About this RNA:
Shown here is a 159-nucleotide RNA from Streptosporangium album, a member of the family "c-di-AMP riboswitch aptamer (ydaO/yuaA leader)". Taxonomically the source falls in Streptosporangium (Bacteria, Actinomycetota, Actinomycetes, Streptosporangiales). Gene Ontology terms of the family: regulation of gene expression and cyclic-di-AMP binding.

[Rfam]
RNA sequence: CGCGGCGGCCUGCCGAAUCCGUGCAGCCAGGAGGCGCGGAACCGGGGACCCAUGGGCCCUCAGAGGAGGGCCAGGGGUGAAUCGGCAUAUGUCAUGCCGUAGGGCGACUUCCCUGCCCGAAUCCGUCAGCUAACCCGGUAGGCAUCAGUGGAAGUCCCA
Numbered sequence: 001c002g003c004g005g006c007g008g009c010c011u012g013c014c015g016a017a018u019c020c021g022u023g024c025a026g027c028c029a030g031g032a033g034g035c036g037c038g039g040a041a042c043c044g045g046g047g048a049c050c051c052a053u054g055g056g057c058c059c060u061c062a063g064a065g066g067a068g069g070g071c072c073a074g075g076g077g078u079g080a081a082u083c084g085g086c087a088u089a090u091g092u093c094a095u096g097c098c099g100u101a102g103g104g105c106g107a108c109u110u111c112c113c114u115g116c117c118c119g120a121a122u123c124c125g126u127c128a129g130c131u132a133a134c135c136c137g138g139u140a141g142g143c144a145u146c147a148g149u150g151g152a153a154g155u156c157c158c159a
Stems, first nucleotide, its partner, number of pairs: 011144004018040007041139006051074001075124003083099004102118004